[Rfam]
RNA: TPP riboswitch aptamer (THI element)
Organism: Corynebacterium appendicis
Nucleotides: 099
Stems, first nucleotide, its partner, number of pairs: 006087005011048004016042001017034005054079003060073004
Number, partner (000 for none) and nucleotide at each position: 001000g002000g003000g004000c005000a006087a007086g008085a009084c010083a011048c012047g013046g014045g015000g016042u017034g018033c019032c020031c021030u022000g023000u024000u025000c026000a027000u028000g029000c030021a031020g032019g033018g034017c035000u036000g037000a038000g039000a040000u041000c042016a043000c044000a045014c046013c047012c048011g049000c050000c051000g052000a053000a054079c055078c056077u057000g058000a059000u060073c061072g062071a063070a064000g065000c066000c067000a068000u069000c070063u071062u072061c073060g074000c075000g076000g077056a078055g079054g080000g081000a082000u083010u084009g085008u086007c087006u088000u089000g090000c091000a092000a093000c094000g095000g096000c097000c098000c099000c